Record summary: The record is a 143-nucleotide sequence from Cuscuta europaea, which matches "small nucleolar RNA snoR137" in Rfam. The family's consensus secondary structure was predicted with RNAalifold. The match comes from Rfam's covariance-model search (65 bits).
RNA sequence: AUUUCUACUAAAACUUGGUGAAAUCGCUAGAUUUAAUAUGUCUGCGCGAUGUUCAUGUUUUGAAAGGAUAAAUUAAAUUUUCAGGCUUAAACAAUACGGCGAAUGAUUUUAAUCCGCUGUGUUACCUGUCCCCUGAAAGAAUC
Numbered sequence: 001a002u003u004u005c006u007a008c009u010a011a012a013a014c015u016u017g018g019u020g021a022a023a024u025c026g027c028u029a030g031a032u033u034u035a036a037u038a039u040g041u042c043u044g045c046g047c048g049a050u051g052u053u054c055a056u057g058u059u060u061u062g063a064a065a066g067g068a069u070a071a072a073u074u075a076a077a078u079u080u081u082c083a084g085g086c087u088u089a090a091a092c093a094a095u096a097c098g099g100c101g102a103a104u105g106a107u108u109u110u111a112a113u114c115c116g117c118u119g120u121g122u123u124a125c126c127u128g129u130c131c132c133c134u135g136a137a138a139g140a141a142u143c
Stems, first nucleotide, its partner, number of pairs: 003068004019055004024049004080137006093123003097119005